[Rfam]
RNA sequence: CCCUGGUGCCCUUCAUUCCACCGGAAUCUGUGCGCGCGGAACCCGGAUUUCAGUGAAAUGGAGCCCGUCAGAGA
Number, nucleotide and partner (000 for none) at each position: 001c000002c000003c000004u000005g000006g000007u000008g000009c000010c000011c063012u062013u061014c060015a059016u058017u000018c000019c055020a054021c053022c000023g051024g050025a049026a048027u000028c046029u045030g044031u000032g000033c000034g000035c000036g000037c000038g000039g000040a000041a000042c000043c000044c030045g029046g028047a000048u026049u025050u024051c023052a000053g021054u020055g019056a000057a000058a016059u015060g014061g013062a012063g011064c000065c000066c000067g000068u000069c000070a000071g000072a000073g000074a000

Description:
Rfam assigns this 74-nucleotide RNA sequence from Grallaria varia to the family "mir-205 microRNA precursor family".